[Rfam]
RNA sequence: AGGGCAAGUUGGGCAAUCGCGUGCUUAUAAGUACGAGGAAGGUCCGGACUCCAUAGGACAGAGUAGCGGCUAACAGCCGUCCAUGCCUUUGGCAUGAGGAAUAGGGCCACAGAGACGAGACUGUUAUGAGGGCUUAAGCAAUUAGGCACACAGGUGGCGACUUCCACUUGUUGAUAUAGUGCAUUGAGUUGCAUUGUAGAAGCAUAGCAGGGUGAAACGCGGUAACCUCUACUCGGAGCAACAUCAAAUAGGCGUACGUACUGCGUCAAGCAGCUAAGGGCGGUCCGUCCGAGUAUGCGGGUAGAUGGCAAGAGCUUGUUAGUAAUAACAAGCCUAGAUGAAUGAUUGCCAACGAUUUAUCGUUUACAGAAUCCGGCCUAUAGACUUGCCCCUCCU
Numbered sequence: 001a002g003g004g005c006a007a008g009u010u011g012g013g014c015a016a017u018c019g020c021g022u023g024c025u026u027a028u029a030a031g032u033a034c035g036a037g038g039a040a041g042g043u044c045c046g047g048a049c050u051c052c053a054u055a056g057g058a059c060a061g062a063g064u065a066g067c068g069g070c071u072a073a074c075a076g077c078c079g080u081c082c083a084u085g086c087c088u089u090u091g092g093c094a095u096g097a098g099g100a101a102u103a104g105g106g107c108c109a110c111a112g113a114g115a116c117g118a119g120a121c122u123g124u125u126a127u128g129a130g131g132g133c134u135u136a137a138g139c140a141a142u143u144a145g146g147c148a149c150a151c152a153g154g155u156g157g158c159g160a161c162u163u164c165c166a167c168u169u170g171u172u173g174a175u176a177u178a179g180u181g182c183a184u185u186g187a188g189u190u191g192c193a194u195u196g197u198a199g200a201a202g203c204a205u206a207g208c209a210g211g212g213u214g215a216a217a218c219g220c221g222g223u224a225a226c227c228u229c230u231a232c233u234c235g236g237a238g239c240a241a242c243a244u245c246a247a248a249u250a251g252g253c254g255u256a257c258g259u260a261c262u263g264c265g266u267c268a269a270g271c272a273g274c275u276a277a278g279g280g281c282g283g284u285c286c287g288u289c290c291g292a293g294u295a296u297g298c299g300g301g302u303a304g305a306u307g308g309c310a311a312g313a314g315c316u317u318g319u320u321a322g323u324a325a326u327a328a329c330a331a332g333c334c335u336a337g338a339u340g341a342a343u344g345a346u347u348g349c350c351a352a353c354g355a356u357u358u359a360u361c362g363u364u365u366a367c368a369g370a371a372u373c374c375g376g377c378c379u380a381u382a383g384a385c386u387u388g389c390c391c392c393u394c395c396u
Base pairs, nucleotide, nucleotide: 002391003390004389005388006387007386008385009384010383011381012350013349014348015347016346017345018344020035021034022033023032024031025030040379041378042377044376045375046374047373048372049238050237051236052235056286057285058284059283061234062233063232064231065230066080067079068078069077070076081098082096083095084094085093099229100228104227105226106223107222108221121211122210123208124207125206126205127204128203242307243306244305245304252298253297254296255295256294257293278290279289280288281287314333315332316331317330318329319328320327321326
A member of the RNA family "Bacterial RNase P class A" from Oligella urethralis, 396 nucleotides long. Its family is annotated with dimeric ribonuclease P complex, ribonuclease P activity and tRNA processing in the Gene Ontology. The family's RNA type in Rfam is ribozyme. The base pairs follow the family's consensus structure, which is taken from published work. The organism belongs to Oligella urethralis, within Bacteria.